[Rfam]
RNA sequence: GGCCACCUUCGGGGGGCUAACAUAGGCGGGGAACCGCCCUGCGGGUCACCCCCGCAGUUGCUAAACGGAAGACAGAAA
Numbered sequence: 001g002g003c004c005a006c007c008u009u010c011g012g013g014g015g016g017c018u019a020a021c022a023u024a025g026g027c028g029g030g031g032a033a034c035c036g037c038c039c040u041g042c043g044g045g046u047c048a049c050c051c052c053c054g055c056a057g058u059u060g061c062u063a064a065a066c067g068g069a070a071g072a073c074a075g076a077a078a
Stems, first nucleotide, its partner, number of pairs: 001018004006014003026053001028051003
L2-Alphaproteobacteria ribosomal protein leader: a 78-nucleotide RNA sequence from Actibacterium atlanticum. Lineage of the source: Bacteria > Pseudomonadati > Alphaproteobacteria > Roseobacteraceae > Actibacterium. Pairs were carried over by alignment from the consensus structure, which is taken from published work. Rfam classes the family as a cis-regulatory leader. It is one of the family's seed sequences.